[Rfam]
About this RNA: The record is an 85-nucleotide RNA from Vibrio ziniensis, which matches "c-di-GMP-I riboswitch aptamer" in Rfam.

RNA sequence: UACUGAAAAUGGCAAAACCAUCGAAAGAUGGUGACGCAAAGUUUCCGGUCUACGGGAUUAAUCCUAUGAUAGCGGGGCUGCCAGU
Numbered sequence: 001u002a003c004u005g006a007a008a009a010u011g012g013c014a015a016a017a018c019c020a021u022c023g024a025a026a027g028a029u030g031g032u033g034a035c036g037c038a039a040a041g042u043u044u045c046c047g048g049u050c051u052a053c054g055g056g057a058u059u060a061a062u063c064c065u066a067u068g069a070u071a072g073c074g075g076g077g078c079u080g081c082c083a084g085u
Stems, first nucleotide, its partner, number of pairs: 012037002017032006040079004045075003048070003055064003
The source organism's lineage runs through Bacteria, Pseudomonadati, Vibrionales, Vibrionaceae and Vibrio.